[Rfam]
RNA sequence: UAGUCCGAUUCCAAGAUACCAGACGGUCAGGCAGGUCACGAGAAGACCAUGACAACGUUGUUGCCAGCCCUGUCCGGUGCAAACACUCUGUAUGGUUCAG
Numbered sequence: 001u002a003g004u005c006c007g008a009u010u011c012c013a014a015g016a017u018a019c020c021a022g023a024c025g026g027u028c029a030g031g032c033a034g035g036u037c038a039c040g041a042g043a044a045g046a047c048c049a050u051g052a053c054a055a056c057g058u059u060g061u062u063g064c065c066a067g068c069c070c071u072g073u074c075c076g077g078u079g080c081a082a083a084c085a086c087u088c089u090g091u092a093u094g095g096u097u098c099a100g
Base pairs, nucleotide, nucleotide: 003012025032033062034061077098079096080095

The family of this 100-nucleotide RNA sequence is "Pyrrolysine insertion sequence mttB". A search with the family's covariance model found it, with a score of 90 bits. For this family Rfam cites "Effects of using coding potential, sequence conservation and mRNA structure conservation for predicting pyrroly-sine containing genes" (Theil Have et al., BMC Bioinformatics, 2013). Its family is annotated with pyrrolysine incorporation in the Gene Ontology.